[Rfam]
Nucleotides: 094
Stems, first nucleotide, its partner, number of pairs: 009086003013082002018077002023072003029067007
Number, partner (000 for none) and nucleotide at each position: 001000c002000c003000c004000u005000a006000g007000c008000c009086g010085c011084g012000a013082u014081a015000g016000g017000a018077a019076c020000g021000g022000c023072a024071u025070c026000c027000u028000u029067u030066u031065u032064u033063g034062u035061g036000g037000c038000g039000g040000a041000u042000g043000g044000a045000g046000c047000a048000a049000u050000g051000c052000g053000g054000a055000g056000g057000c058000c059000g060000g061035c062034a063033c064032a065031a066030a067029a068000a069000a070025g071024a072023u073000a074000c075000a076019g077018u078000g079000g080000a081014u082013a083000g084011c085010g086009c087000g088000a089000u090000a091000a092000a093000g094000c
Flavo-1 RNA: a 94-nucleotide sequence from Chryseobacterium hagamense. Pairs were carried over by alignment from the consensus structure, which is taken from published work. The family has 201 seed sequences and 7,497 matches in Rfam 15.1. The organism belongs to Chryseobacterium, within Bacteria. By type it is a small RNA.